[Rfam]
RNA sequence: AGUUCACAAGGUGAUGGUGUUCCACCUUUCCCAACCGCCGGUUCGCUCGAAUCGGAUGAUGACGCCUGAUAUACA
Numbered sequence: 001a002g003u004u005c006a007c008a009a010g011g012u013g014a015u016g017g018u019g020u021u022c023c024a025c026c027u028u029u030c031c032c033a034a035c036c037g038c039c040g041g042u043u044c045g046c047u048c049g050a051a052u053c054g055g056a057u058g059a060u061g062a063c064g065c066c067u068g069a070u071a072u073a074c075a
Stems, first nucleotide, its partner, number of pairs: 010026004016066006038055007
Dot-bracket structure: .........[[[[..((((((.]]]]...........(((((((....))))))).....)))))).........
Rfam assigns this 75-nucleotide RNA sequence from Citrobacter koseri to the family "Fluoride riboswitch aptamer (crcB RNA motif)". It is one of the family's seed sequences.